The family of this 121-nucleotide sequence from Aequorivita ciconiae is "6S-Flavo RNA".

[Rfam]
RNA sequence: ACUCAACAUUACUUCUUUAAAAAGGGUGAGUUUAAGUUGUAAAAGCGUGCCGUUGCCGAUACUCUCGGAUAGACGGAUACUUGACCAGCUUGUUAACCCUAAACUUGUUUUUAGGGAGUUU
Dot-bracket structure: ......................(((((......(((((....(((....((((...................))))...)))....)))))....))))).....................
The organism belongs to Aequorivita, within Bacteria. Pairs were carried over by alignment from the consensus structure, which is taken from published work. A search with the family's covariance model found it, with a score of 97 bits. The family's RNA type in Rfam is small RNA.